[Rfam]
RNA: Mycobacterium smegmatis small RNA 1
Organism: Mycobacterium lacus
RNA sequence: ACGGAAGCCCGGUGAGGCCUAGGUCGAUCCGGAAGAGAAGGUUCGAUCUCCCGACCCGGGCGCCUAAACACGGUUCCCGGCACCCACGCGGAGUCAUAGCCGCGAUAAUGGCAGAAGUGUUGCGGGCCUGCGUAAUUGCGAAGAAUGGAUGGUCGCGACGGCCCUUUGGGUGGGGCUGCAACCGGAAGUGUCGCAAGAUCGCCGAGGCCACCCACGCAGCCGAAGAAGUGCACGCAUGGUAACCGAGAUCCGUGUCGGCGGGCGGCGAUUCGAAACCCUCGAUCGCCGCCCGCUUUUUGCA
Number, nucleotide and partner (000 for none) at each position: 001a000002c000003g065004g064005a000006a000007g061008c060009c059010c058011g057012g056013u000014g000015a000016g052017g051018c000019c000020u000021a049022g048023g000024u000025c045026g044027a043028u000029c041030c040031g000032g000033a000034a000035g000036a000037g000038a000039a000040g030041g029042u000043u027044c026045g025046a000047u000048c022049u021050c000051c017052c016053g000054a000055c000056c012057c011058g010059g009060g008061c007062g000063c000064c004065u003066a000067a000068a255069c254070a253071c252072g251073g250074u000075u000076c000077c000078c245079g244080g243081c000082a000083c000084c239085c238086a237087c000088g235089c234090g233091g000092a000093g231094u230095c000096a000097u000098a000099g112100c111101c110102g000103c000104g000105a000106u000107a000108a000109u000110g101111g100112c099113a000114g000115a000116a000117g000118u000119g220120u219121u218122g217123c216124g215125g209126g208127c207128c206129u205130g202131c201132g200133u000134a000135a000136u196137u195138g194139c193140g192141a191142a000143g000144a000145a189146u188147g000148g000149a000150u184151g183152g182153u181154c000155g000156c000157g000158a000159c178160g177161g176162c175163c174164c173165u172166u000167u000168g000169g000170g000171u000172g165173g164174g163175g162176c161177u160178g159179c000180a000181a153182c152183c151184g150185g000186a000187a000188g146189u145190g000191u141192c140193g139194c138195a137196a136197g000198a000199u000200c132201g131202c130203c000204g000205a129206g128207g127208c126209c125210a000211c000212c000213c000214a000215c124216g123217c122218a121219g120220c119221c000222g000223a000224a000225g000226a000227a000228g000229u000230g094231c093232a000233c090234g089235c088236a000237u086238g085239g084240u000241a000242a000243c080244c079245g078246a000247g000248a000249u000250c073251c072252g071253u070254g069255u068256c000257g000258g293259c292260g291261g290262g289263c288264g287265g286266c285267g284268a283269u000270u282271c281272g280273a000274a000275a000276c000277c000278c000279u000280c272281g271282a270283u268284c267285g266286c265287c264288g263289c262290c261291c260292g259293c258294u000295u000296u000297u000298u000299g000300c000301a000